[Rfam]
RNA sequence: CCAUCUAAAUUUUAAUAGCCCUAGACAGCGGGUGUUUGGCUUAAUGGCCCUUGGGCCGCCCGCCGAGGCAGAACAUCCAGUGGCGUUUGCCGCUGAUUGGCUGCUGUGUCUAGGCACUGCGGCUUUUUUGUUGCAUCC
Numbered sequence: 001c002c003a004u005c006u007a008a009a010u011u012u013u014a015a016u017a018g019c020c021c022u023a024g025a026c027a028g029c030g031g032g033u034g035u036u037u038g039g040c041u042u043a044a045u046g047g048c049c050c051u052u053g054g055g056c057c058g059c060c061c062g063c064c065g066a067g068g069c070a071g072a073a074c075a076u077c078c079a080g081u082g083g084c085g086u087u088u089g090c091c092g093c094u095g096a097u098u099g100g101c102u103g104c105u106g107u108g109u110c111u112a113g114g115c116a117c118u119g120c121g122g123c124u125u126u127u128u129u130g131u132u133g134c135a136u137c138c
Stems, first nucleotide, its partner, number of pairs: 028063006034040002100123005106117004

This 138-nucleotide RNA sequence from Kouleothrix aurantiaca belongs to the Rfam family "Ribosomal protein L10 leader".
Its family is annotated with regulation of gene expression in the Gene Ontology.
For this family Rfam cites "Diverse mechanisms for regulating ribosomal protein synthesis in Escherichia coli" (Zengel and Lindahl, Prog Nucleic Acid Res Mol Biol, 1994).
The family's consensus secondary structure was predicted with CMfinder.
About the family: This family is a putative r-protein leader autoregulatory structure found in B. subtilis and other low-GC Gram-positive bacteria. It is located in the 5' untranslated regions of mRNAs encoding ribosomal proteins L10 and L12 (rplJ-rplL).
Taxonomically the source falls in Kouleothrix (Bacteria, Chloroflexia, Chloroflexales, Roseiflexineae).